c-di-GMP-I riboswitch aptamer: an 86-nucleotide RNA sequence from Bacillus sp. FJAT-18017.
RNA sequence: GUACGAUAAUGGCAAAACCAUUGAAAAAUGGUGACGCAAAGCUAUAGGGGCUAAGGUCAAAUUGAUUAUGCUCGCCAGCUUCCGAA
Numbered sequence: 001g002u003a004c005g006a007u008a009a010u011g012g013c014a015a016a017a018c019c020a021u022u023g024a025a026a027a028a029u030g031g032u033g034a035c036g037c038a039a040a041g042c043u044a045u046a047g048g049g050g051c052u053a054a055g056g057u058c059a060a061a062u063u064g065a066u067u068a069u070g071c072u073c074g075c076c077a078g079c080u081u082c083c084g085a086a
Base pairs, nucleotide, nucleotide: 012037013036017032018031019030020029021028022027040080041079042078043077047076048075049072050071051070056066057065058064059063
A search with the family's covariance model found it, with a score of 78 bits.